[Rfam]
Rhodo-rpoB RNA: a 94-nucleotide sequence from Pontivivens nitratireducens. The family's consensus secondary structure is taken from published work. Rfam classes the family as a cis-regulatory element.
RNA sequence: CAUCCGGGUGCAGUGCGUGUGGGAGCGCACUGACAGAAUGGGAUGAACCCCCGAUACGGGCUUUCGCCGGUGCCGCUGCCCAACGGUCACUGCG
Dot-bracket structure: (((((.....(((((((........)))))))........)))))......................(((.((((........))))..)))..